Record summary
The family of this 122-nucleotide RNA sequence from Erinaceus europaeus is "Small nucleolar RNA SNORA68". Rfam 15.1 lists 1,079 matches to the family in 643 species. NCBI's taxonomy places the organism under Eukaryota, Eumetazoa, Craniata, Boreoeutheria, Erinaceus. Its family is annotated with RNA processing and nucleolus in the Gene Ontology. U68 is a member of the H/ACA class of small nucleolar RNAs (snoRNAs) which act as guides in the the modification of uridines to pseudouridines. The match comes from Rfam's covariance-model search (79 bits). For this family Rfam cites "The family of box ACA small nucleolar RNAs is defined by an evolutionarily conserved secondary structure and ubiquitous sequence elements essential for RNA accumulation" (Ganot et al., Genes Dev, 1997).

RNA sequence: UCAGCACCUAAACCCAAGGGCCACUAUUGUAAUAGUGGCUAAACACAGGUGCUAACAGCAAAGGGUACCUGUUCGCCUUUGGAGGACUUCUUGUGCCCUUCAAAUUUAGAGGUUCUACACAC
Numbered sequence: 001u002c003a004g005c006a007c008c009u010a011a012a013c014c015c016a017a018g019g020g021c022c023a024c025u026a027u028u029g030u031a032a033u034a035g036u037g038g039c040u041a042a043a044c045a046c047a048g049g050u051g052c053u054a055a056c057a058g059c060a061a062a063g064g065g066u067a068c069c070u071g072u073u074c075g076c077c078u079u080u081g082g083a084g085g086a087c088u089u090c091u092u093g094u095g096c097c098c099u100u101c102a103a104a105u106u107u108a109g110a111g112g113u114u115c116u117a118c119a120c121a122c
Stems, first nucleotide, its partner, number of pairs: 003053007019040009065115001067113004078104008087095001